[Rfam]
RNA sequence: UUAUAUAAAGGGCAAACUCAACGAAAGUUGAGGACGCAAAGUCAUGGGUCUAAGGUGAUUAAGUCACUACGAUUGCCAAACUGCCGAA
Numbered sequence: 001u002u003a004u005a006u007a008a009a010g011g012g013c014a015a016a017c018u019c020a021a022c023g024a025a026a027g028u029u030g031a032g033g034a035c036g037c038a039a040a041g042u043c044a045u046g047g048g049u050c051u052a053a054g055g056u057g058a059u060u061a062a063g064u065c066a067c068u069a070c071g072a073u074u075g076c077c078a079a080a081c082u083g084c085c086g087a088a
Base pairs, nucleotide, nucleotide: 012037013036017032018031019030020029021028022027040082041081042080045078046077047076048073049072050071055067056066057065058064
c-di-GMP-I riboswitch aptamer: an 88-nucleotide sequence from Natranaerobius trueperi. A reference for the family is Weinberg et al. (2007), "Identification of 22 candidate structured RNAs in bacteria using the CMfinder comparative genomics pipeline", Nucleic Acids Res. Rfam describes the family as follows. GEMM was predicted in a large-scale screen for bacterial structured RNA regulatory elements.